Source information
Rfam assigns this 109-nucleotide RNA sequence to the family "skipping-rope RNA". It is annotated as a small RNA.
Nucleotides: 109
Base pairs, nucleotide, nucleotide: 001109002108003107004106005105006104007103008102011049012048013047014046040095041094042093043092044091051078052072053071054070083101084100085099086098087097
Number, partner (000 for none) and nucleotide at each position: 001109u002108a003107g004106g005105u006104u007103a008102g009000a010000a011049g012048u013047u014046g015000a016000a017000a018000u019000a020000g021000u022000c023000g024000u025000u026000a027000u028000u029000a030000u031000u032000u033000a034000a035000u036000g037000a038000u039000g040095c041094g042093g043092u044091c045000c046014c047013a048012a049011c050000g051078c052072g053071c054070c055000a056000a057000g058000c059000c060000c061000u062000u063000a064000a065000g066000g067000g068000a069000a070054g071053g072052u073000g074000a075000c076000a077000a078051g079000a080000g081000a082000u083101g084100u085099g086098g087097g088000g089000a090000g091044g092043g093042c094041u095040g096000u097087c098086c099085c100084a101083c102008c103007u104006a105005a106004c107003c108002u109001a